RNA sequence: UCCUGGGUCCGGGCCCCUCUGGCGUGAUGGCGCUUGCCACACGUGAUGUCGGACUCCUUGG
Numbered sequence: 001u002c003c004u005g006g007g008u009c010c011g012g013g014c015c016c017c018u019c020u021g022g023c024g025u026g027a028u029g030g031c032g033c034u035u036g037c038c039a040c041a042c043g044u045g046a047u048g049u050c051g052g053a054c055u056c057c058u059u060g061g
Stems, first nucleotide, its partner, number of pairs: 006055007022044005029038003
Dot-bracket structure: .....(((((((.........(((((..(((....))).)))))....)))))))......

The family of this 61-nucleotide RNA sequence from Niveispirillum lacus is "terC RNA". Rfam classes the family as a cis-regulatory element. Lineage of the source: Bacteria > Pseudomonadota > Alphaproteobacteria > Azospirillaceae > Niveispirillum. The family's consensus secondary structure is taken from published work.